Rfam assigns this 377-nucleotide part of an RNA from Sulfuritortus calidifontis to the family "Bacterial large subunit ribosomal RNA". It scores 2781 bits against the family's covariance model. Lineage of the source: Bacteria > Pseudomonadati > Pseudomonadota > Betaproteobacteria > Sulfuritortus.
RNA sequence: GAUAAAACGGGUGAAAAGCCCGUUCGCCGGAAGCCCAAGGUUUCCUACGCAACGUUCAUCGGCGUAGGGUGAGUCGGCCCCUAAGGCGAGGCAGAGAUGCGUAGCUGAUGGGAAACAGGUCAAUAUUCCUGUACCUUCGUUAACUGCGAUGGGGGGACGGAGAAGGCUAGGUCAGCCGGGUGUUGGAUGUCCCGGUUCAAGCGUGUAGGCGUGCUGCAUAGGCAAAUCCGUGCGGCUUAGCUGAGGCGUGACGACGAGCGGCCUUGAGCUGCGAAGUGAUUGAUGCCCUGCUUCCAGGAAAAGCCUCUAAGCUUCAGGUUAACGAAGACCGUACCGCAAACCGACACAGGUGGGCAGGGUGAGAAUCCUAAGGCGCU
Numbered sequence: 001g002a003u004a005a006a007a008c009g010g011g012u013g014a015a016a017a018g019c020c021c022g023u024u025c026g027c028c029g030g031a032a033g034c035c036c037a038a039g040g041u042u043u044c045c046u047a048c049g050c051a052a053c054g055u056u057c058a059u060c061g062g063c064g065u066a067g068g069g070u071g072a073g074u075c076g077g078c079c080c081c082u083a084a085g086g087c088g089a090g091g092c093a094g095a096g097a098u099g100c101g102u103a104g105c106u107g108a109u110g111g112g113a114a115a116c117a118g119g120u121c122a123a124u125a126u127u128c129c130u131g132u133a134c135c136u137u138c139g140u141u142a143a144c145u146g147c148g149a150u151g152g153g154g155g156g157a158c159g160g161a162g163a164a165g166g167c168u169a170g171g172u173c174a175g176c177c178g179g180g181u182g183u184u185g186g187a188u189g190u191c192c193c194g195g196u197u198c199a200a201g202c203g204u205g206u207a208g209g210c211g212u213g214c215u216g217c218a219u220a221g222g223c224a225a226a227u228c229c230g231u232g233c234g235g236c237u238u239a240g241c242u243g244a245g246g247c248g249u250g251a252c253g254a255c256g257a258g259c260g261g262c263c264u265u266g267a268g269c270u271g272c273g274a275a276g277u278g279a280u281u282g283a284u285g286c287c288c289u290g291c292u293u294c295c296a297g298g299a300a301a302a303g304c305c306u307c308u309a310a311g312c313u314u315c316a317g318g319u320u321a322a323c324g325a326a327g328a329c330c331g332u333a334c335c336g337c338a339a340a341c342c343g344a345c346a347c348a349g350g351u352g353g354g355c356a357g358g359g360u361g362a363g364a365a366u367c368c369u370a371a372g373g374c375g376c377u
Stems, first nucleotide, its partner, number of pairs: 006024006025375004033355004039335002044068006053061002075331003080111002085106003089102001091100003115132005135327011146312002151307004159294004165287003170281005175196006197254002201249004208242003213236007221229002258272005341350002357369003